[Rfam]
RNA sequence: CCAGCAUUUCCAGGUAGUCCAAGGUGUCCUACAAAAAAACCUUGGGUUACGCAUAUGGGGGUCUGG
Numbered sequence: 001c002c003a004g005c006a007u008u009u010c011c012a013g014g015u016a017g018u019c020c021a022a023g024g025u026g027u028c029c030u031a032c033a034a035a036a037a038a039a040c041c042u043u044g045g046g047u048u049a050c051g052c053a054u055a056u057g058g059g060g061g062u063c064u065g066g
Base pairs, nucleotide, nucleotide: 001066002065003064004063006062007061008060009059010058011057014056015055016054019045020044021043022042023041024040025039026032027031
Shown here is a 66-nucleotide sequence from Ursus americanus, a member of the family "MAT2A 3'UTR stem loop E".
A reference for the family is Parker et al. (2011), "New families of human regulatory RNA structures identified by comparative analysis of vertebrate genomes", Genome Res.
A search with the family's covariance model found it, with a score of 64 bits.
The family's RNA type in Rfam is cis-regulatory element.
Pairs were carried over by alignment from the consensus structure, which is taken from published work.